This 55-nucleotide sequence from Coregonus sp. 'balchen' belongs to the Rfam family "UnaL2 LINE 3' element". It scores 62 bits against the family's covariance model. NCBI's taxonomy places the organism under Eukaryota, Craniata, Salmoniformes, Coregoninae, Coregonus. A reference for the family is Baba et al. (2004), "Solution structure of an RNA stem-loop derived from the 3' conserved region of eel LINE UnaL2", RNA. The eel long interspersed element (LINE) UnaL2 and its partner short interspersed element (SINE) share a conserved 3' tail containing a stem-loop that is critical for their retrotransposition. Presumably, the first step of retrotransposition is the recognition of their 3' tails by UnaL2-encoded reverse transcriptase. The solution structure of a 17-nucleotide RNA derived from the 3' tail of UnaL2 was determined by NMR. The family has 30 seed sequences and 493,311 matches in Rfam 15.1. Gene Ontology term of the family: transposition, RNA-mediated. The family's RNA type in Rfam is cis-regulatory element.

RNA sequence: UGCACUCAGGAACUGUAAGUCGCUCUGGAUAAGAGCGUCUGCUAAAUGACAGGCU
Number, nucleotide and partner (000 for none) at each position: 001u000002g000003c000004a000005c000006u000007c000008a000009g000010g000011a000012a000013c000014u044015g042016u041017a040018a000019g000020u000021c037022g036023c035024u034025c033026u032027g000028g000029a000030u000031a000032a026033g025034a024035g023036c022037g021038u000039c000040u017041g016042c015043u000044a014045a000046a000047u000048g000049a000050c000051a000052g000053g000054c000055u000